[Rfam]
Shown here is a 113-nucleotide RNA sequence from Solanum lycopersicum, a member of the family "MIR398 microRNA precursor family".
RNA sequence: ACUAAUUCAACAGGGGUAACCUGAGAACACAUGUUGAGAUACUGAUUCAUCGAAUCAAAUCAAAAAGAAAAAAAUGACAACAUGUGAUCUCAAGUUGCCCCUGUUGAAUACCU
Numbered sequence: 001a002c003u004a005a006u007u008c009a010a011c012a013g014g015g016g017u018a019a020c021c022u023g024a025g026a027a028c029a030c031a032u033g034u035u036g037a038g039a040u041a042c043u044g045a046u047u048c049a050u051c052g053a054a055u056c057a058a059a060u061c062a063a064a065a066a067g068a069a070a071a072a073a074a075u076g077a078c079a080a081c082a083u084g085u086g087a088u089c090u091c092a093a094g095u096u097g098c099c100c101c102u103g104u105u106g107a108a109u110a111c112c113u
Stems, first nucleotide, its partner, number of pairs: 007107002011103004016098004023091004028086007

Its family is annotated with RISC complex and miRNA-mediated post-transcriptional gene silencing in the Gene Ontology. The literature on the family includes a 2004 paper in Mol Cell by Jones-Rhoades and Bartel, "Computational identification of plant microRNAs and their targets, including a stress-induced miRNA".